[Rfam]
RNA sequence: AAGCCACGAGAUUGAAGUGAAUGGGUUGUGGGUCCACAAUUGGGUGGGCCCGAACUCAGGAAAGUCCCCGGGCCAACAUUCCGUGGAGACACGGGCUCGGUAACGAGGCAAAUCCUUGCAUUGGGUGGUUCCUCCGCUCCGGCGGAAGGGCUGAGACACGUGUGGAGCUCUAGUUGGGCCGCCUUGCAGGACUAAUUUGGCCAAUUUGUACAGUUAUUCACUUGGUCUAAUUGGACCAACUGAACGGGGCUUACAAUCUCGUGGCA
Numbered sequence: 001a002a003g004c005c006a007c008g009a010g011a012u013u014g015a016a017g018u019g020a021a022u023g024g025g026u027u028g029u030g031g032g033u034c035c036a037c038a039a040u041u042g043g044g045u046g047g048g049c050c051c052g053a054a055c056u057c058a059g060g061a062a063a064g065u066c067c068c069c070g071g072g073c074c075a076a077c078a079u080u081c082c083g084u085g086g087a088g089a090c091a092c093g094g095g096c097u098c099g100g101u102a103a104c105g106a107g108g109c110a111a112a113u114c115c116u117u118g119c120a121u122u123g124g125g126u127g128g129u130u131c132c133u134c135c136g137c138u139c140c141g142g143c144g145g146a147a148g149g150g151c152u153g154a155g156a157c158a159c160g161u162g163u164g165g166a167g168c169u170c171u172a173g174u175u176g177g178g179c180c181g182c183c184u185u186g187c188a189g190g191a192c193u194a195a196u197u198u199g200g201c202c203a204a205u206u207u208g209u210a211c212a213g214u215u216a217u218u219c220a221c222u223u224g225g226u227c228u229a230a231u232u233g234g235a236c237c238a239a240c241u242g243a244a245c246g247g248g249g250c251u252u253a254c255a256a257u258c259u260c261g262u263g264g265c266a
Stems, first nucleotide, its partner, number of pairs: 003265009015223006022058006030051007062252003066249004082093004094109001096107004112193001115190006124183008225236004
Dot-bracket structure: ..(((((((((...((((((.((((((..(((((((........))))))).))))))...[[[.[[[[............((((....))))(.((((....)))).)..(..((((((...((((((((............................................)))))))).))))))..)........................)))))).((((....)))).........]]]]]]]....))))))))).